Rfam assigns this 76-nucleotide sequence from Alligator sinensis to the family "Mammalian CPEB3 ribozyme". It scores 35 bits against the family's covariance model. Rfam links the family to the GO term RNA nuclease activity.
[Rfam]
RNA sequence: GAUGGCGAGCUUGAGGCCGUCGCAGAGGGGCUCACGGUGCGGGCUGUCAGAUUACAACGAAUCUGUGAAUUCUGCU
Numbered sequence: 001g002a003u004g005g006c007g008a009g010c011u012u013g014a015g016g017c018c019g020u021c022g023c024a025g026a027g028g029g030g031c032u033c034a035c036g037g038u039g040c041g042g043g044c045u046g047u048c049a050g051a052u053u054a055c056a057a058c059g060a061a062u063c064u065g066u067g068a069a070u071u072c073u074g075c076u
Stems, first nucleotide, its partner, number of pairs: 015044001017042002022075006028040001030038001048065006